[Rfam]
RNA sequence: AUGUAGCAUGCCCGUUUGGUGAAAUACUCUGAUGUUUAUAUGCUAUUUAAUUGCUUUUGGGUAACGGGGUGUUACAAAAAG
Numbered sequence: 001a002u003g004u005a006g007c008a009u010g011c012c013c014g015u016u017u018g019g020u021g022a023a024a025u026a027c028u029c030u031g032a033u034g035u036u037u038a039u040a041u042g043c044u045a046u047u048u049a050a051u052u053g054c055u056u057u058u059g060g061g062u063a064a065c066g067g068g069g070u071g072u073u074a075c076a077a078a079a080a081g
Stems, first nucleotide, its partner, number of pairs: 002076008011068006
Shown here is an 81-nucleotide RNA sequence from Medicago truncatula, a member of the family "MIR2617 microRNA precursor family". A search with the family's covariance model found it, with a score of 76 bits. The family has 3 seed sequences and 1,174 matches in Rfam 15.1. Pairs were carried over by alignment from the consensus structure, which was predicted with RNAalifold. Gene Ontology terms of the family: miRNA-mediated post-transcriptional gene silencing and RISC complex. Taxonomically the source falls in Medicago (Eukaryota, Streptophyta, Gunneridae, Papilionoideae).